[Rfam]
RNA sequence: UGCAAGUAUUUUACAAUUAAGAAGCAACUGCCCUUUGUACAGAUUGUGUAUUAGUCU
Numbered sequence: 001u002g003c004a005a006g007u008a009u010u011u012u013a014c015a016a017u018u019a020a021g022a023a024g025c026a027a028c029u030g031c032c033c034u035u036u037g038u039a040c041a042g043a044u045u046g047u048g049u050a051u052u053a054g055u056c057u
Stems, first nucleotide, its partner, number of pairs: 018037004024031002
The family of this 57-nucleotide sequence from Ziziphus jujuba is "Plastid-rps18 3UTR RNA". A reference for the family is Richter et al. (2023), "Retrograde signaling in plants: A critical review focusing on the GUN pathway and beyond", Plant Commun. Rfam classes the family as a cis-regulatory element. A search with the family's covariance model found it, with a score of 70 bits. From the family's description: Plastid rps18 is a non-coding RNA (ncRNA) present in plastids. It was identified as a short stem-loop motif in the 3 prime untranslate region (3UTR) of rps18 gene.